[Rfam]
RNA sequence: UAAAAAUGAAUUAUUUUGCCGUAGACAGUAGGCGCAGUAAGCUUAAAUUUGCCUACCGAGGUUUUCUAUAGAUUAUGGAAAAUAGAGCCUUUGUAUGUCUAUGUGGAUAUGCAAAGGCUUUUGAUUUAACGGC
Numbered sequence: 001u002a003a004a005a006a007u008g009a010a011u012u013a014u015u016u017u018g019c020c021g022u023a024g025a026c027a028g029u030a031g032g033c034g035c036a037g038u039a040a041g042c043u044u045a046a047a048u049u050u051g052c053c054u055a056c057c058g059a060g061g062u063u064u065u066c067u068a069u070a071g072a073u074u075a076u077g078g079a080a081a082a083u084a085g086a087g088c089c090u091u092u093g094u095a096u097g098u099c100u101a102u103g104u105g106g107a108u109a110u111g112c113a114a115a116g117g118c119u120u121u122u123g124a125u126u127u128a129a130c131g132g133c
Base pairs, nucleotide, nucleotide: 028056029055030054031053032052033051034042035041087118088117089116090115091114092113093112094111095110096109097108098107099106100105

This 133-nucleotide sequence from Alkalithermobacter paradoxus belongs to the Rfam family "Ribosomal protein L10 leader". Rfam describes the family as follows. This family is a putative r-protein leader autoregulatory structure found in B. subtilis and other low-GC Gram-positive bacteria. Rfam classes the family as a cis-regulatory leader. Taxonomically the source falls in Alkalithermobacter (Bacteria, Bacillati, Clostridia, Tepidibacteraceae).